[Rfam]
RNA sequence: UUUAAAAUAAAUUUAAAAUGAAUACGAUAAAAAUUAACAAUACUUGGUGGUGGUGCUUUUUAGAAUUUGAAUUCUGAGAAGUCGCUAUAGAGUAUAUAAUUAUUUCUAAAAGCCUGCU
Numbered sequence: 001u002u003u004a005a006a007a008u009a010a011a012u013u014u015a016a017a018a019u020g021a022a023u024a025c026g027a028u029a030a031a032a033a034u035u036a037a038c039a040a041u042a043c044u045u046g047g048u049g050g051u052g053g054u055g056c057u058u059u060u061u062a063g064a065a066u067u068u069g070a071a072u073u074c075u076g077a078g079a080a081g082u083c084g085c086u087a088u089a090g091a092g093u094a095u096a097u098a099a100u101u102a103u104u105u106c107u108a109a110a111a112g113c114c115u116g117c118u
Base pairs, nucleotide, nucleotide: 040095041094042093043092044091045090047088049086050085051084052083056081057080059078060077061076062075064073065072066071

The family of this 118-nucleotide sequence from Haloflavibacter putidus is "Bacteroidete tryptophan peptide leader RNA". The organism belongs to Haloflavibacter, within Bacteria. The match comes from Rfam's covariance-model search (51 bits). The base pairs follow the family's consensus structure, which is taken from published work. It is annotated as a cis-regulatory leader.